[Rfam]
RNA sequence: GUUAAAUAAAAAGCGCCUGAACUAUUUUCGGACGAAAAGAAAAUAGUUGACGAGGAAGAGGUUCAUCGAUCAUUCGGCGGAUGCCUCUCGGAAUCAGUCACUUUCGUUAGCUUUUAUCUAAAACAGGCAAGGCGACUUCCUGUACAAAAAUAAAAGCAGUGGCUAAU
Numbered sequence: 001g002u003u004a005a006a007u008a009a010a011a012a013g014c015g016c017c018u019g020a021a022c023u024a025u026u027u028u029c030g031g032a033c034g035a036a037a038a039g040a041a042a043a044u045a046g047u048u049g050a051c052g053a054g055g056a057a058g059a060g061g062u063u064c065a066u067c068g069a070u071c072a073u074u075c076g077g078c079g080g081a082u083g084c085c086u087c088u089c090g091g092a093a094u095c096a097g098u099c100a101c102u103u104u105c106g107u108u109a110g111c112u113u114u115u116a117u118c119u120a121a122a123a124c125a126g127g128c129a130a131g132g133c134g135a136c137u138u139c140c141u142g143u144a145c146a147a148a149a150a151u152a153a154a155a156g157c158a159g160u161g162g163c164u165a166a167u
Stems, first nucleotide, its partner, number of pairs: 020048008029039001057088005066077004089106005110157007124142004129138003
Dot-bracket structure: ...................((((((((.(.........).))))))))........(((((....((((....))))......)))))(((((........)))))...(((((((.......((((.(((....)))))))........)))))))..........